RNA sequence: CAGUUAUCACGAAAGGCCGAGGGAUUAGACCCAUUGAAGCCUUAGCAACCCUUUAUCACUAAAGAAGGUGCUACAUUCUACCAUUUUUUUGGAUAGAUAACAC
Numbered sequence: 001c002a003g004u005u006a007u008c009a010c011g012a013a014a015g016g017c018c019g020a021g022g023g024a025u026u027a028g029a030c031c032c033a034u035u036g037a038a039g040c041c042u043u044a045g046c047a048a049c050c051c052u053u054u055a056u057c058a059c060u061a062a063a064g065a066a067g068g069u070g071c072u073a074c075a076u077u078c079u080a081c082c083a084u085u086u087u088u089u090u091g092g093a094u095a096g097a098u099a100a101c102a103c
Base pairs, nucleotide, nucleotide: 003101004100005099006098007097008096013043014042015041016040017039021032022031023030026080027079028078029077044072045071046070047069049068050067051064052063053062054061076095081092082091083090
Dot-bracket structure: ..((((((....(((((...(((..[[[[)))......)))))((((.((((((......))))..))))))...(]]]](((......)))..)))))))..
A member of the RNA family "SAM riboswitch aptamer (S box leader)" from Flavobacterium macacae, 103 nucleotides long. From the family's description: The SAM riboswitch is found upstream of a number of genes which code for proteins involved in methionine or cysteine biosynthesis in Gram-positive bacteria. The family is grouped with related families in Rfam's "SAM clan". The source organism's lineage runs through Bacteria, Bacteroidota, Flavobacteriia, Flavobacteriales and Flavobacterium.